RNA: TPP riboswitch aptamer (THI element)
Organism: Geomicrobium sp. JCM 19038
RNA sequence: AACCUUAACUAGGGGAGCCCAAUGAGCUGGGCUGAGAGGGAAGCGCAAUGAAGCUUCUUGACUCUUCGGACCUGAUCUGGAUCAUGCCAGCGUAGGGAAGUUAUCUAUGAGUCAU
Dot-bracket structure: .....(((((((((.((((((......)))))......(((((..........))))))..)))).....((((..((((......))))..))))..)))))............